[Rfam]
Nucleotides: 171
Stems, first nucleotide, its partner, number of pairs: 002015005028171002031168002035163002040157006046150005062145006073137003078132006085113003091106004
Number, partner (000 for none) and nucleotide at each position: 001000g002015c003014c004013g005012u006011c007000g008000u009000g010000a011006g012005g013004c014003g015002g016000g017000a018000u019000c020000u021000g022000a023000a024000g025000g026000a027000a028171g029170c030000g031168u032167g033000g034000a035163g036162c037000a038000a039000a040157a041156c042155c043154a044153u045152g046150a047149c048148c049147u050146g051000a052000c053000g054000a055000a056000c057000a058000g059000a060000a061000a062145u063144c064143c065142g066141a067140u068000a069000u070000g071000a072000g073137g074136c075135c076000u077000a078132c079131c080130c081129g082128g083127c084000u085113g086112g087111c088000g089000g090000a091106g092105c093104a094103a095000g096000c097000c098000a099000u100000u101000g102000a103094u104093u105092g106091c107000a108000a109000a110000g111087g112086c113085c114000a115000u116000a117000a118000c119000c120000a121000u122000c123000a124000a125000g126000a127083g128082c129081c130080g131079g132078g133000g134000g135075g136074g137073u138000a139000g140067a141066u142065u143064g144063g145062g146050c147049a148048g149047g150046u151000g152045u153044g154043u155042g156041g157040u158000g159000a160000a161000a162036g163035c164000g165000g166000c167032u168031g169000a170029g171028c

This 171-nucleotide RNA sequence from Escherichia sp. 4_1_40B belongs to the Rfam family "Group II catalytic intron D1-D4-3". Taxonomically the source falls in Escherichia (Bacteria, Gammaproteobacteria, Enterobacterales, Enterobacteriaceae). The pairing is the family consensus, mapped onto this sequence. Group II introns are found in rRNA, tRNA and mRNA of organelles in fungi, plants and protists, and also in mRNA in bacteria.